[Rfam]
RNA: Yersinia sRNA 155(RyfD)
RNA sequence: UAAAACGAUCCAUGGCAAGUAACUGCAUUCCUUCUAUUAUUUAUUACUGGCAAAAUAAUCUUGAAAUUUUGAGGGAUGACCUCAUUUAAUCUCCAGUAGCAAUUUUGACCAGUAUGUAUGGGAGGAGUUAUGCGUCUGGAUCGUCUUAC
Numbered sequence: 001u002a003a004a005a006c007g008a009u010c011c012a013u014g015g016c017a018a019g020u021a022a023c024u025g026c027a028u029u030c031c032u033u034c035u036a037u038u039a040u041u042u043a044u045u046a047c048u049g050g051c052a053a054a055a056u057a058a059u060c061u062u063g064a065a066a067u068u069u070u071g072a073g074g075g076a077u078g079a080c081c082u083c084a085u086u087u088a089a090u091c092u093c094c095a096g097u098a099g100c101a102a103u104u105u106u107g108a109c110c111a112g113u114a115u116g117u118a119u120g121g122g123a124g125g126a127g128u129u130a131u132g133c134g135u136c137u138g139g140a141u142c143g144u145c146u147u148a149c
Stems, first nucleotide, its partner, number of pairs: 002147002005144008014136003019131001021129003031050002035046002059074006075086004090125005096119003